[Rfam]
RNA sequence: GUUAUUGCGUCGAUCAAUGCAUUGAAAGUGACUACAUCGGGGCUUAUAUAUUUUGUUCAAAUCGUAUGCAAUGAAAAUUUGUAAUUCAGCUCCGGUGUAAUCACUUUCACUGCGUUAAUCAAUGCAUU
Numbered sequence: 001g002u003u004a005u006u007g008c009g010u011c012g013a014u015c016a017a018u019g020c021a022u023u024g025a026a027a028g029u030g031a032c033u034a035c036a037u038c039g040g041g042g043c044u045u046a047u048a049u050a051u052u053u054u055g056u057u058c059a060a061a062u063c064g065u066a067u068g069c070a071a072u073g074a075a076a077a078u079u080u081g082u083a084a085u086u087c088a089g090c091u092c093c094g095g096u097g098u099a100a101u102c103a104c105u106u107u108c109a110c111u112g113c114g115u116u117a118a119u120c121a122a123u124g125c126a127u128u
Base pairs, nucleotide, nucleotide: 006126007125008124009123012120013119014118016116017115018114019113020112021111023109024108025107026106027105028104029103030102031101033099034098035097036096037095038094039093040092041091042090044084045083047081048080050078051077052076053075
RNA: MIR161 microRNA precursor family